[Rfam]
RNA sequence: AAGACCCAGUUCUCUUGGGUCCUGCAACAGGAUCUAGUGCUCUUGGGUCCACGUCAGGACCCAAUUUUCUUGGGUUCUUUGUCAGGACUCAAGGCUAUUGGGUUUU
Numbered sequence: 001a002a003g004a005c006c007c008a009g010u011u012c013u014c015u016u017g018g019g020u021c022c023u024g025c026a027a028c029a030g031g032a033u034c035u036a037g038u039g040c041u042c043u044u045g046g047g048u049c050c051a052c053g054u055c056a057g058g059a060c061c062c063a064a065u066u067u068u069c070u071u072g073g074g075u076u077c078u079u080u081g082u083c084a085g086g087a088c089u090c091a092a093g094g095c096u097a098u099u100g101g102g103u104u105u106u
Base pairs, nucleotide, nucleotide: 001106002105003104004103005102006101007100008099009098013094014093015092016091017090018089019088020087021086022085023084024083029078030077031076032075033074034073035072036071037070043064044063045062046061047060048059049058050057
RNA: MIR6450 microRNA precursor family